This 70-nucleotide RNA from Rattus norvegicus belongs to the Rfam family "Small nucleolar RNA SNORD73".
Pairs were carried over by alignment from the consensus structure, which was predicted with PFOLD.

[Rfam]
RNA sequence: AAUGUGUGAUGAGAAAAUGUUUCGGUCCCAGUUGAUGACCACUGAUAAUAACUCACAUUUUUCUGAUGUU
Numbered sequence: 001a002a003u004g005u006g007u008g009a010u011g012a013g014a015a016a017a018u019g020u021u022u023c024g025g026u027c028c029c030a031g032u033u034g035a036u037g038a039c040c041a042c043u044g045a046u047a048a049u050a051a052c053u054c055a056c057a058u059u060u061u062u063c064u065g066a067u068g069u070u
Stems, first nucleotide, its partner, number of pairs: 001070004
Dot-bracket structure: ((((..............................................................))))
It is one of the family's seed sequences. Rfam links the family to the GO terms nucleolus and RNA processing. Rfam 15.1 lists 769 matches to the family in 586 species. Lineage of the source: Eukaryota > Bilateria > Deuterostomia > Vertebrata > Rattus.